[Rfam]
RNA sequence: UGCUGUAACUCCUUUGACGUGAAGGCGUACUGGACGCGGGUUCGAUUCCCGCCACCUCCACCAGAUGACGCGUUUGGCAGAAGCGCCAUCUGAUGGGGGUGUCCCGGUUUCGACAGGGCGAGAUAGCGAAGAAGGCAGCAGGAAAGGUGACCGACCUAACCGGCACAAAUCCGUAACUGCAAAUGAU
Numbered sequence: 001u002g003c004u005g006u007a008a009c010u011c012c013u014u015u016g017a018c019g020u021g022a023a024g025g026c027g028u029a030c031u032g033g034a035c036g037c038g039g040g041u042u043c044g045a046u047u048c049c050c051g052c053c054a055c056c057u058c059c060a061c062c063a064g065a066u067g068a069c070g071c072g073u074u075u076g077g078c079a080g081a082a083g084c085g086c087c088a089u090c091u092g093a094u095g096g097g098g099g100u101g102u103c104c105c106g107g108u109u110u111c112g113a114c115a116g117g118g119c120g121a122g123a124u125a126g127c128g129a130a131g132a133a134g135g136c137a138g139c140a141g142g143a144a145a146g147g148u149g150a151c152c153g154a155c156c157u158a159a160c161c162g163g164c165a166c167a168a169a170u171c172c173g174u175a176a177c178u179g180c181a182a183a184u185g186a187u
Stems, first nucleotide, its partner, number of pairs: 001140005014130002026120003030116003036052005053101007141156002
The family of this 187-nucleotide RNA from Paraburkholderia sp. BL10I2N1 is "permuted transfer-messenger RNA". The organism belongs to Paraburkholderia, within Bacteria. Rfam links the family to the GO term RNA catabolic process. It is one of the family's seed sequences. Rfam's curators write: Bacterial tmRNA, also known as 10Sa RNA or SsrA, is named for its dual tRNA and mRNA-like properties. Its role is to liberate the mRNA from a stalled ribosome. To accomplish this part of the tmRNA is used as a reading frame that ends in a translation stop signal. The broken mRNA is replaced in the ribosome by the tmRNA and translation of the tmRNA leads to addition of a proteolysis tag to the incomplete protein enabling recognition by a protease. The family's consensus secondary structure is taken from published work.